[Rfam]
RNA sequence: AUGAAUACAUGGGGAGAGAGCGCACAAAGCGCCGCCGAAGGAGCAAGUGACAAUGUCAUGAAUCUCUCAGGCAAAAAGACUCAUGUUGGACG
Numbered sequence: 001a002u003g004a005a006u007a008c009a010u011g012g013g014g015a016g017a018g019a020g021c022g023c024a025c026a027a028a029g030c031g032c033c034g035c036c037g038a039a040g041g042a043g044c045a046a047g048u049g050a051c052a053a054u055g056u057c058a059u060g061a062a063u064c065u066c067u068c069a070g071g072c073a074a075a076a077a078g079a080c081u082c083a084u085g086u087u088g089g090a091c092g
Stems, first nucleotide, its partner, number of pairs: 007086007020032004034072003037068002041066003047059004
About this RNA: This 92-nucleotide RNA from Sporosarcina sp. BI001-red belongs to the Rfam family "Glycine riboswitch aptamer". NCBI's taxonomy places the organism under Bacteria, Bacillati, Caryophanales, Caryophanaceae, Sporosarcina.